FMN riboswitch aptamer (RFN element): a 115-nucleotide RNA from Ruminococcaceae bacterium D16. Pairs were carried over by alignment from the consensus structure, which is taken from published work. Lineage of the source: Bacteria > Bacillati > Clostridia > Eubacteriales > Oscillospiraceae.
[Rfam]
RNA sequence: CAGGAUCUUCAGGGCGGGGUGCAAUUCCCCACCGGUGGUAUAGCCCACGAGCCGAAAGGCAUGACCCGGUGUGAUUCCGGGGCCGACAGUAUAGUCUGGAUGGAAGAAGAUCGUG
Number, nucleotide and partner (000 for none) at each position: 001c000002a000003g000004g112005a111006u110007c109008u108009u107010c106011a000012g000013g000014g000015c000016g000017g029018g028019g027020u000021g000022c000023a000024a000025u000026u000027c019028c018029c017030c000031a095032c094033c085034g084035g048036u047037g046038g045039u000040a000041u000042a000043g083044c082045c038046c037047a036048c035049g000050a000051g000052c000053c059054g000055a000056a000057a000058g000059g053060c000061a000062u000063g000064a000065c081066c080067c079068g078069g077070u000071g000072u000073g000074a000075u000076u000077c069078c068079g067080g066081g065082g044083c043084c034085g033086a000087c098088a097089g096090u000091a000092u000093a000094g032095u031096c089097u088098g087099g000100a000101u000102g000103g000104a000105a000106g010107a009108a008109g007110a006111u005112c004113g000114u000115g000